[Rfam]
RNA: Bacterial small subunit ribosomal RNA, nucleotides 561 to 911
RNA sequence: GGCGUAAAACGAGCGCAGGCGGGUUUGUAAGUUUGGUAUUAAAUCUAGAUGCUUAACGUCUAGCUGUAUCAAAAACUGUAAACCUAGAGUGUAGUAGGGAGUUGGGGAACUCCAUGUGGAGCGGUAAAAUGCGUAGAUAUAUGGAAGAACACCGGUGGCGAAGGCGCCAACUUGGACUAUCACUGACGCUUAGGCUCGAAAGUGUGGGGAGCAAAUAGGAUUAGAUACCCUAGUAGUCCACACCGUAAACGAUCAUCAUUAAAUGUCGGCUCGAACGAGUCGGUGUUGUAGCUAACGCAUUAAAUGAUGUGCCUGGGUAGUACAUUCGCAAGAAUGAAACUCAAACGGAAU
Numbered sequence: 001g002g003c004g005u006a007a008a009a010c011g012a013g014c015g016c017a018g019g020c021g022g023g024u025u026u027g028u029a030a031g032u033u034u035g036g037u038a039u040u041a042a043a044u045c046u047a048g049a050u051g052c053u054u055a056a057c058g059u060c061u062a063g064c065u066g067u068a069u070c071a072a073a074a075a076c077u078g079u080a081a082a083c084c085u086a087g088a089g090u091g092u093a094g095u096a097g098g099g100a101g102u103u104g105g106g107g108a109a110c111u112c113c114a115u116g117u118g119g120a121g122c123g124g125u126a127a128a129a130u131g132c133g134u135a136g137a138u139a140u141a142u143g144g145a146a147g148a149a150c151a152c153c154g155g156u157g158g159c160g161a162a163g164g165c166g167c168c169a170a171c172u173u174g175g176a177c178u179a180u181c182a183c184u185g186a187c188g189c190u191u192a193g194g195c196u197c198g199a200a201a202g203u204g205u206g207g208g209g210a211g212c213a214a215a216u217a218g219g220a221u222u223a224g225a226u227a228c229c230c231u232a233g234u235a236g237u238c239c240a241c242a243c244c245g246u247a248a249a250c251g252a253u254c255a256u257c258a259u260u261a262a263a264u265g266u267c268g269g270c271u272c273g274a275a276c277g278a279g280u281c282g283g284u285g286u287u288g289u290a291g292c293u294a295a296c297g298c299a300u301u302a303a304a305u306g307a308u309g310u311g312c313c314u315g316g317g318u319a320g321u322a323c324a325u326u327c328g329c330a331a332g333a334a335u336g337a338a339a340c341u342c343a344a345a346c347g348g349a350a351u
Base pairs, nucleotide, nucleotide: 001313002312003311009310011197012196013195014194018190019189020188022084023083024082025081026080027079028078030077031076032073033072034071035070036069037068038067039066045063046062047061048060049059050058051057088184089183090182091180092179093178094177095176099173100172101171102170103169104168105167106150111145112144113143114142115141116140117139121132122131123130158165159164202243203242204241205240206239207238211237212236216232217231218230219229254309255308256307257306258305259304262287263286264285265284266283267282268281269280270279271278272277291298292297315342316341317340324335325334326333327332